The family of this 76-nucleotide RNA sequence from Pan troglodytes is "Small nucleolar RNA SNORD115". A reference for the family is Cavaille et al. (2000), "Identification of brain-specific and imprinted small nucleolar RNA genes exhibiting an unusual genomic organization", Proc Natl Acad Sci U S A. The family's RNA type in Rfam is C/D-box small nucleolar RNA. Its family is annotated with nucleolus and RNA processing in the Gene Ontology. The match comes from Rfam's covariance-model search (68 bits).
RNA sequence: AGGCCAAUGCUGAAUUAUUAUCUUGACGAGAAAUGAUGACGUAAAAAUUAAGCUUAGUAGGAUUACACUGAGGCCC
Numbered sequence: 001a002g003g004c005c006a007a008u009g010c011u012g013a014a015u016u017a018u019u020a021u022c023u024u025g026a027c028g029a030g031a032a033a034u035g036a037u038g039a040c041g042u043a044a045a046a047a048u049u050a051a052g053c054u055u056a057g058u059a060g061g062a063u064u065a066c067a068c069u070g071a072g073g074c075c076c
Stems, first nucleotide, its partner, number of pairs: 002075003005070002008067002